This 73-nucleotide sequence from Drosophila simulans belongs to the Rfam family "mir-2 microRNA precursor family". Rfam 15.1 lists 918 matches to the family in 280 species. Gene Ontology terms of the family: miRNA-mediated post-transcriptional gene silencing and RISC complex. On this family, see Ambros, Cell 2001: "microRNAs: tiny regulators with great potential". The family's consensus secondary structure was predicted with PFOLD. Taxonomically the source falls in Sophophora (Eukaryota, Neoptera, Muscomorpha, Drosophilini).
[Rfam]
RNA sequence: UGGGCUCUCAAAGUGGUUGUGAAAUGCAUUUCCGCUUUGCGCGGCAUAUCACAGCCAGCUUUGAUGAGCUUAG
Numbered sequence: 001u002g003g004g005c006u007c008u009c010a011a012a013g014u015g016g017u018u019g020u021g022a023a024a025u026g027c028a029u030u031u032c033c034g035c036u037u038u039g040c041g042c043g044g045c046a047u048a049u050c051a052c053a054g055c056c057a058g059c060u061u062u063g064a065u066g067a068g069c070u071u072a073g
Base pairs, nucleotide, nucleotide: 006066008064009063010062011061012060013059014057015056016055017054018053019052020051021050022049025048026047